Shown here is a 120-nucleotide sequence from Kroppenstedtia pulmonis, a member of the family "PyrR binding site". The base pairs follow the family's consensus structure, which is taken from published work. Rfam links the family to the GO terms pyrimidine nucleobase transport and pyrimidine nucleobase biosynthetic process. The family's RNA type in Rfam is cis-regulatory element. This family represents the PyrR binding site and terminator structure. This RNA structure is found upstream of a variety of genes involved in pyrimidine biosynthesis and transport. The alignment also includes a portion of the antiterminator structure. It scores 55 bits against the family's covariance model.
RNA sequence: CCGCCCUUUAAGACGGUCCAGAGAGGCCGGCAAGGGGGAAGAAUCCAUUCCAUUUAUCCGUGUUGGGCGGAUGAUUUGACGUGGAUAACCCUCUUUGCCGACGGCAAAGAGUUUUUUUAU
Numbered sequence: 001c002c003g004c005c006c007u008u009u010a011a012g013a014c015g016g017u018c019c020a021g022a023g024a025g026g027c028c029g030g031c032a033a034g035g036g037g038g039a040a041g042a043a044u045c046c047a048u049u050c051c052a053u054u055u056a057u058c059c060g061u062g063u064u065g066g067g068c069g070g071a072u073g074a075u076u077u078g079a080c081g082u083g084g085a086u087a088a089c090c091c092u093c094u095u096u097g098c099c100g101a102c103g104g105c106a107a108a109g110a111g112u113u114u115u116u117u118u119a120u
Stems, first nucleotide, its partner, number of pairs: 004036005014029005050078001052076001054074008087115002091111009